[Rfam]
RNA sequence: CACUUUAAUUCGCUCCGAGCCGUUCCACCUAAAGCGCGUCCUCCCCGCGCCAUGGCGGCCCGGCCGUGGGUGGCGGGGAAACCCUGUCGCCUCCCGUGCUUGGAAAGGAGCCUUGCGAUGACACAC
Numbered sequence: 001c002a003c004u005u006u007a008a009u010u011c012g013c014u015c016c017g018a019g020c021c022g023u024u025c026c027a028c029c030u031a032a033a034g035c036g037c038g039u040c041c042u043c044c045c046c047g048c049g050c051c052a053u054g055g056c057g058g059c060c061c062g063g064c065c066g067u068g069g070g071u072g073g074c075g076g077g078g079a080a081a082c083c084c085u086g087u088c089g090c091c092u093c094c095c096g097u098g099c100u101u102g103g104a105a106a107g108g109a110g111c112c113u114u115g116c117g118a119u120g121a122c123a124c125a126c
Base pairs, nucleotide, nucleotide: 003120006117012111013110014109015108016107019064020063021062022061025058026057028055029054034050035049036048037047038046068092069091070090071089072088073087074086075085076084077082093103094102
Shown here is a 126-nucleotide RNA sequence from Hankyongella ginsenosidimutans, a member of the family "Molybdenum/Tungsten riboswitch aptamer (Moco RNA motif)". The literature on the family includes a 2008 paper in Mol Microbiol by Regulski et al., "in molybdenum cofactor and tungsten cofactor metabolism". Rfam 15.1 lists 1,248 matches to the family in 836 species. The source organism's lineage runs through Bacteria, Pseudomonadati, Pseudomonadota, Sphingomonadaceae and Hankyongella.